[Rfam]
RNA sequence: AGACCGAUCCGGGCCCCUCUGGCGCAGUUCCGCUGCGCGAUGUCGGAUCACCGCG
Numbered sequence: 001a002g003a004c005c006g007a008u009c010c011g012g013g014c015c016c017c018u019c020u021g022g023c024g025c026a027g028u029u030c031c032g033c034u035g036c037g038c039g040a041u042g043u044c045g046g047a048u049c050a051c052c053g054c055g
Stems, first nucleotide, its partner, number of pairs: 006049007022038007